[Rfam]
RNA sequence: GAUCAUGGCCAGCUUUGCAGGGUGGGCAGUCAGCCUGUGUGCGUAGGAGCAGCUGUGCAAACCCAUGCAAAACUGACCACGGUU
Numbered sequence: 001g002a003u004c005a006u007g008g009c010c011a012g013c014u015u016u017g018c019a020g021g022g023u024g025g026g027c028a029g030u031c032a033g034c035c036u037g038u039g040u041g042c043g044u045a046g047g048a049g050c051a052g053c054u055g056u057g058c059a060a061a062c063c064c065a066u067g068c069a070a071a072a073c074u075g076a077c078c079a080c081g082g083u084u
Base pairs, nucleotide, nucleotide: 003082004081006079007078008077010075011074012073014071015070016069017068018067019066020064021063023060026058027057028056032054033053034052
Dot-bracket structure: ..((.(((.(((.((((((((.(..(((...(((.................))).))).)..)).)))))).))).))).))..

Record summary:
mir-19 microRNA precursor family: an 84-nucleotide sequence from Myripristis murdjan. The match comes from Rfam's covariance-model search (51 bits). For this family Rfam cites "Identification of novel genes coding for small expressed RNAs" (Lagos-Quintana et al., Science, 2001). The family has 106 seed sequences and 2,337 matches in Rfam 15.1.